[Rfam]
RNA sequence: GCAGCGCUUCGGUCUGUCGCUGGCAUUCUCUUAUGGGGAUGCGAGAGGAAAGUCCGGGCAGCGCAGGGCAUCCCACUUCCGAAACUAGAAGCUAUUGGUGACAGUAGGUGUCGGCAGAAGAAAAUGACCGCCCGAAACUUAUCCCGUAUCCAUGCGGGGGUAGUGUCGGGUAAGGGUGAGAAGGUGGUGUAAGAGACCACCAGUUGGCGGGUGAUCGCCAGGCUGUGCCAUCUGGGAGCUGUAAGCUCAUGUAAACCGCAGAUUGAGGGCGGCUCGUCCGAUUGCCUUCGGGCUACUGUGGAGGGUAGAGUGCUUGAGCCUAGGGGUGACUCUAGGACUAGAUAAAUGGCAGACGACUCUGAGCGGUGUCAUCCGUGAGGAGCUACAGAACUCGGCUUAUAGGGGCACUGCUUUU
Numbered sequence: 001g002c003a004g005c006g007c008u009u010c011g012g013u014c015u016g017u018c019g020c021u022g023g024c025a026u027u028c029u030c031u032u033a034u035g036g037g038g039a040u041g042c043g044a045g046a047g048g049a050a051a052g053u054c055c056g057g058g059c060a061g062c063g064c065a066g067g068g069c070a071u072c073c074c075a076c077u078u079c080c081g082a083a084a085c086u087a088g089a090a091g092c093u094a095u096u097g098g099u100g101a102c103a104g105u106a107g108g109u110g111u112c113g114g115c116a117g118a119a120g121a122a123a124a125u126g127a128c129c130g131c132c133c134g135a136a137a138c139u140u141a142u143c144c145c146g147u148a149u150c151c152a153u154g155c156g157g158g159g160g161u162a163g164u165g166u167c168g169g170g171u172a173a174g175g176g177u178g179a180g181a182a183g184g185u186g187g188u189g190u191a192a193g194a195g196a197c198c199a200c201c202a203g204u205u206g207g208c209g210g211g212u213g214a215u216c217g218c219c220a221g222g223c224u225g226u227g228c229c230a231u232c233u234g235g236g237a238g239c240u241g242u243a244a245g246c247u248c249a250u251g252u253a254a255a256c257c258g259c260a261g262a263u264u265g266a267g268g269g270c271g272g273c274u275c276g277u278c279c280g281a282u283u284g285c286c287u288u289c290g291g292g293c294u295a296c297u298g299u300g301g302a303g304g305g306u307a308g309a310g311u312g313c314u315u316g317a318g319c320c321u322a323g324g325g326g327u328g329a330c331u332c333u334a335g336g337a338c339u340a341g342a343u344a345a346a347u348g349g350c351a352g353a354c355g356a357c358u359c360u361g362a363g364c365g366g367u368g369u370c371a372u373c374c375g376u377g378a379g380g381a382g383c384u385a386c387a388g389a390a391c392u393c394g395g396c397u398u399a400u401a402g403g404g405g406c407a408c409u410g411c412u413u414u415u
Stems, first nucleotide, its partner, number of pairs: 001411004006406005011400001012354007020045002023042006050398003054395005059241004067289001071237005076091004092107001094105004108232001114228003128175002130171006137164002183201006203223001204221007245311004256301005282295001284293003319336007
Bacterial RNase P class A: a 415-nucleotide RNA sequence from Prevotella sp. CAG:732. The family's RNA type in Rfam is ribozyme. It scores 190 bits against the family's covariance model. The base pairs follow the family's consensus structure, which is taken from published work.